[Rfam]
RNA sequence: UUCUGUUCGCAGGAACAAAGAGAAGCAGAUUUAUUUUAUACCCGAUAAGUACCAAUACGCAAUGGGG
Numbered sequence: 001u002u003c004u005g006u007u008c009g010c011a012g013g014a015a016c017a018a019a020g021a022g023a024a025g026c027a028g029a030u031u032u033a034u035u036u037u038a039u040a041c042c043c044g045a046u047a048a049g050u051a052c053c054a055a056u057a058c059g060c061a062a063u064g065g066g067g
Stems, first nucleotide, its partner, number of pairs: 001020002004017005041066003049058003

Rfam assigns this 67-nucleotide RNA from Victoria cruziana to the family "Plastid-clpP 5UTR RNA". The family's RNA type in Rfam is cis-regulatory element.